[Rfam]
RNA sequence: GAGUUUUUGAAAAUCAUUUGAAUCAAGUAGCGAUUCAAAUGAUUUUCAAAAA
Numbered sequence: 001g002a003g004u005u006u007u008u009g010a011a012a013a014u015c016a017u018u019u020g021a022a023u024c025a026a027g028u029a030g031c032g033a034u035u036c037a038a039a040u041g042a043u044u045u046u047c048a049a050a051a052a
Stems, first nucleotide, its partner, number of pairs: 007049018
A member of the RNA family "Plastid-ccsA-ndhD-1 3UTR RNA" from Kingdonia uniflora, 52 nucleotides long. The source organism's lineage runs through Eukaryota, Streptophytina, Spermatophyta, Magnoliopsida and Kingdonia. It scores 52 bits against the family's covariance model. The family is grouped with related families in Rfam's "Plastid-ccsA_ndhD 3UTR RNA clan". By type it is a cis-regulatory element. Plastid-ccsA-ndhD-1 is a non-coding RNA (ncRNA) recognised in plastids.